[Rfam]
RNA sequence: AGAAUGCACAUUAAUUAUCCCAGGGGCCAUGGGAUAAACAAAAACCCUGCAAAAACAAGUUAUCACACCCUAGAAUGGUUCUAUCAUGAUUACUAACCUAUGGCUCUGAUAAAAACCUGGAUCUU
Number, nucleotide and partner (000 for none) at each position: 001a000002g000003a000004a000005u000006g000007c000008a000009c000010a122011u121012u120013a000014a118015u115016u114017a000018u000019c000020c000021c000022a000023g107024g106025g105026g104027c103028c102029a101030u100031g099032g098033g097034a000035u000036a000037a000038a000039c000040a000041a000042a000043a000044a000045c000046c000047c000048u086049g085050c000051a000052a000053a080054a079055a000056c077057a076058a000059g000060u073061u072062a071063u000064c000065a000066c000067a000068c000069c000070c000071u062072a061073g060074a000075a000076u057077g056078g000079u054080u053081c000082u000083a000084u000085c049086a048087u000088g000089a000090u000091u000092a000093c000094u000095a000096a000097c033098c032099u031100a030101u029102g028103g027104c026105u025106c024107u023108g000109a000110u000111a000112a000113a000114a016115a015116c000117c000118u014119g000120g012121a011122u010123c000124u000125u000
MIR845_2 microRNA precursor family: a 125-nucleotide RNA from Vitis vinifera. It scores 103 bits against the family's covariance model. For this family Rfam cites "The grapevine genome sequence suggests ancestral hexaploidization in major angiosperm phyla" (Jaillon et al., Nature, 2007). Its family is annotated with miRNA-mediated post-transcriptional gene silencing and RISC complex in the Gene Ontology. Lineage of the source: Eukaryota > Embryophyta > Spermatophyta > Vitaceae > Vitis.